[Rfam]
Record summary: The record is a 131-nucleotide RNA from Crocuta crocuta, which matches "Small nucleolar RNA SNORA72" in Rfam. It scores 117 bits against the family's covariance model. A reference for the family is Ganot et al. (1997), "The family of box ACA small nucleolar RNAs is defined by an evolutionarily conserved secondary structure and ubiquitous sequence elements essential for RNA accumulation", Genes Dev. It is annotated as an H/ACA-box small nucleolar RNA.
RNA sequence: UAACAAAUAUUCCUGCUGUUCUGAUUUUGUAAUAAUCAAGACAGGCUAAACAUUUGCUAUAUUAAGACCAUACAUGUCUCCCCAGACUGAUUCUUCCCCUAGAUCUGGUUUUAUCAAUGCUGGUGAUUUAU
Numbered sequence: 001u002a003a004c005a006a007a008u009a010u011u012c013c014u015g016c017u018g019u020u021c022u023g024a025u026u027u028u029g030u031a032a033u034a035a036u037c038a039a040g041a042c043a044g045g046c047u048a049a050a051c052a053u054u055u056g057c058u059a060u061a062u063u064a065a066g067a068c069c070a071u072a073c074a075u076g077u078c079u080c081c082c083c084a085g086a087c088u089g090a091u092u093c094u095u096c097c098c099c100u101a102g103a104u105c106u107g108g109u110u111u112u113a114u115c116a117a118u119g120c121u122g123g124u125g126a127u128u129u130a131u
Stems, first nucleotide, its partner, number of pairs: 004056002016044005022038005067124004073119001082108005087102003